[Rfam]
RNA: MIR861 microRNA precursor family
Organism: Arabidopsis lyrata
RNA sequence: AAUGAUGUGUUUGGAGAAAUAUGCAUCAUGGAGUCUGUCUUCUUGAGAAGCAUUUUUGAGUGAGAAUAAUUCUCAUAAAUAAUGAUGGAUAUAUCUUCAAGAACUUCGUU
Numbered sequence: 001a002a003u004g005a006u007g008u009g010u011u012u013g014g015a016g017a018a019a020u021a022u023g024c025a026u027c028a029u030g031g032a033g034u035c036u037g038u039c040u041u042c043u044u045g046a047g048a049a050g051c052a053u054u055u056u057u058g059a060g061u062g063a064g065a066a067u068a069a070u071u072c073u074c075a076u077a078a079a080u081a082a083u084g085a086u087g088g089a090u091a092u093a094u095c096u097u098c099a100a101g102a103a104c105u106u107c108g109u110u
Base pairs, nucleotide, nucleotide: 001110002109003108004107005106007104008103010101011100012099013098014097015096016095017094019092020091021090022089024087025086026085027084029075030074031072032071033070034069038065039064040063041062042060043059044058045057046056047055048054049053